The family of this 406-nucleotide RNA sequence from Fulvivirga sp. M361 is "Bacterial RNase P class A". Taxonomically the source falls in Fulvivirga (Bacteria, Bacteroidota, Cytophagia, Cytophagales). A search with the family's covariance model found it, with a score of 262 bits.

[Rfam]
RNA sequence: GUCGUAAGCCAUCUUAUCGCUCGGCUAUUGUGUUAGUUGAGAGGAAAGUCCGGGCAACACAGAGCAUCGUACUUCCUAACAGGAAGGUCCUGUUGUUUUAAUAACUACAGGAACAGACAGUGCCACAGAAAAUAAACUACCUCAGUGUUGGUUCGCAGCAUAGAGGAAAAGGUGAAAAGGUGGGGUAAGAGCUCACCGCUCUGAUGGUGACAUCGGGGGCAUGGUAAACCUUACGAGUUGAAAGACCAAAUAAGUCGCGCAUUUAAAAGGCUGCUCGUCUGAACUUUCUAAAAGUAGCGCGAUGGGUAGGUUGAUUGAUCCUUAUGGUAACAUAAGGACCAGAUAAAUGAUAAGAACAUUGAUAAACAUCAGUGUACAGGACCCGGCUUAUCGGCUUACUUUUUUU
Dot-bracket structure: (..(((((((((((((((.((((((((......))))))))....[[[.[[[[[((((.....[..((((((((((.....)))))(((((((.............)))))).)((...(((((............((.((((.((((((.....)))))).))))...)).......((((((.......))))))(((((((((....)))))))).)..)))..)))))))))))))...((((......((((((.......................((((..]..))))..)))))).....))))......((((((((....))))))))..........)))))))..........................]]]]]]]].).)))))))..)....